[Rfam]
RNA sequence: UUAUGUUAAGGGCAAACCCGCCGAAAGGCGGGGACGCAAAGCCAAAGGGUCUACGACGCUUAAAAGCGUUAUGAUAGCCUGGUUGCCAAG
Number, nucleotide and partner (000 for none) at each position: 001u000002u000003a000004u000005g000006u000007u000008a000009a000010g000011g000012g037013c036014a000015a000016a000017c032018c031019c030020g029021c028022c027023g000024a000025a000026a000027g022028g021029c020030g019031g018032g017033g000034a000035c000036g013037c012038a000039a000040a084041g083042c082043c081044a000045a000046a080047g079048g078049g075050u074051c073052u000053a000054c000055g000056a069057c068058g067059c066060u000061u000062a000063a000064a000065a000066g059067c058068g057069u056070u000071a000072u000073g051074a050075u049076a000077g000078c048079c047080u046081g043082g042083u041084u040085g000086c000087c000088a000089a000090g000
Shown here is a 90-nucleotide RNA sequence from Dehalobacter sp. 12DCB1, a member of the family "c-di-GMP-I riboswitch aptamer".